[Rfam]
Rfam assigns this 76-nucleotide sequence from Henriciella mobilis to the family "Makes More Granules Regulator RNA (mmgR)".
The source organism's lineage runs through Bacteria, Pseudomonadota, Hyphomonadales, Hyphomonadaceae and Henriciella.
The match comes from Rfam's covariance-model search (52 bits).
Clan: suhB sRNA clan.
Pairs were carried over by alignment from the consensus structure.
RNA sequence: UGCUAACGCCUUCUGGCGUUUCCUCCCUUUACCUUAUUGGCCGUGCCGCUUUGGCACGGCCCUUUUUUUAUCUGGC
Numbered sequence: 001u002g003c004u005a006a007c008g009c010c011u012u013c014u015g016g017c018g019u020u021u022c023c024u025c026c027c028u029u030u031a032c033c034u035u036a037u038u039g040g041c042c043g044u045g046c047c048g049c050u051u052u053g054g055c056a057c058g059g060c061c062c063u064u065u066u067u068u069u070a071u072c073u074g075g076c
Stems, first nucleotide, its partner, number of pairs: 008017003039061009